[Rfam]
RNA sequence: UGCAGAGUAAAUUCAUAUGCGUAAAGUGCCAUCCGGAUAGAGAGUUGCCGGAAGGACGAAAAGAGAAAUCUUGCGGUAUAUGGGUUGCAUCUCGCUGCA
Numbered sequence: 001u002g003c004a005g006a007g008u009a010a011a012u013u014c015a016u017a018u019g020c021g022u023a024a025a026g027u028g029c030c031a032u033c034c035g036g037a038u039a040g041a042g043a044g045u046u047g048c049c050g051g052a053a054g055g056a057c058g059a060a061a062a063g064a065g066a067a068a069u070c071u072u073g074c075g076g077u078a079u080a081u082g083g084g085u086u087g088c089a090u091c092u093c094g095c096u097g098c099a
Stems, first nucleotide, its partner, number of pairs: 001099005010086010020075003026057002029055002032052005040092001042090001044088001061072004

THF (Tetrahydrofolate) riboswitch aptamer: a 99-nucleotide RNA sequence from Blautia sp. CAG:257. The literature on the family includes a 2014 paper in Chem Biol by Trausch and Batey, "A disconnect between high-affinity binding and efficient regulation by antifolates and purines in the tetrahydrofolate riboswitch". The family's consensus secondary structure is taken from published work. The family has 101 seed sequences and 747 matches in Rfam 15.1. It scores 86 bits against the family's covariance model. Taxonomically the source falls in Blautia (Bacteria, Bacillota, Lachnospirales, Lachnospiraceae).